Rfam assigns this 91-nucleotide sequence from Thermohalobacter berrensis to the family "c-di-GMP-I riboswitch aptamer". Rfam's curators write: GEMM was predicted in a large-scale screen for bacterial structured RNA regulatory elements. For this family Rfam cites "Riboswitches in Eubacteria Sense the Second Messenger Cyclic Di-GMP" (Sudarsan et al., Science, 2008). Taxonomically the source falls in Thermohalobacter (Bacteria, Bacillota, Tissierellia, Thermohalobacteraceae).
Nucleotides: 091
Base pairs, nucleotide, nucleotide: 012037013036017032018031019030020029021028022027040085041084042083043082045081046080047079048076049075050074055070056069057068058067059066060065
Number, partner (000 for none) and nucleotide at each position: 001000u002000a003000c004000c005000g006000a007000u008000a009000a010000g011000g012037g013036c014000a015000a016000a017032c018031u019030u020029a021028c022027u023000g024000a025000a026000a027022g028021g029020u030019a031018a032017g033000g034000g035000c036013g037012c038000a039000a040085a041084g042083u043082c044000a045081u046080g047079g048076g049075u050074c051000u052000a053000a054000g055070g056069g057068g058067a059066u060065a061000c062000u063000u064000a065060u066059a067058u068057c069056c070055c071000u072000a073000u074050g075049a076048u077000u078000g079047c080046c081045a082043g083042a084041c085040u086000a087000c088000c089000g090000a091000a